[Rfam]
RNA sequence: UACAAAUUGAAUAUGUUUUUUCAUAUAAUAACAGGAAUAUGGCCUGUAAGUUUCUACCGGUUUACCGUAAAUAAACCGACUAUGAAAAGUAACGUAACAAAU
Numbered sequence: 001u002a003c004a005a006a007u008u009g010a011a012u013a014u015g016u017u018u019u020u021u022c023a024u025a026u027a028a029u030a031a032c033a034g035g036a037a038u039a040u041g042g043c044c045u046g047u048a049a050g051u052u053u054c055u056a057c058c059g060g061u062u063u064a065c066c067g068u069a070a071a072u073a074a075a076c077c078g079a080c081u082a083u084g085a086a087a088a089g090u091a092a093c094g095u096a097a098c099a100a101a102u
Stems, first nucleotide, its partner, number of pairs: 018088008029049001031047005058078007
Dot-bracket structure: .................((((((((...(.(((((.......))))).)........(((((((.......)))))))..))))))))..............
Shown here is a 102-nucleotide sequence from Oceanobacillus profundus, a member of the family "Purine riboswitch aptamer". Riboswitches are metabolite binding domains within certain messenger RNAs that serve as precision sensors for their corresponding targets. Pairs were carried over by alignment from the consensus structure, which is taken from published work. Clan: Purine riboswitches.